This 81-nucleotide RNA sequence from Varanus komodoensis belongs to the Rfam family "Small nucleolar RNA SNORD103/SNORD85". On this family, see Huttenhofer et al., EMBO J 2001: "RNomics: an experimental approach that identifies 201 candidates for novel, small, non-messenger RNAs in mouse". The base pairs follow the family's consensus structure. It scores 60 bits against the family's covariance model. Gene Ontology terms of the family: RNA processing and nucleolus. By type it is a C/D-box small nucleolar RNA.
RNA sequence: UCUAGCAGUGAUGAUGCUCUUGCCCUCACUGAAGUUCUCUGAUGAGAACUUUUUGUAAGUACUCAUUUGCUCUGAGCUGGA
Numbered sequence: 001u002c003u004a005g006c007a008g009u010g011a012u013g014a015u016g017c018u019c020u021u022g023c024c025c026u027c028a029c030u031g032a033a034g035u036u037c038u039c040u041g042a043u044g045a046g047a048a049c050u051u052u053u054u055g056u057a058a059g060u061a062c063u064c065a066u067u068u069g070c071u072c073u074g075a076g077c078u079g080g081a
Stems, first nucleotide, its partner, number of pairs: 001081006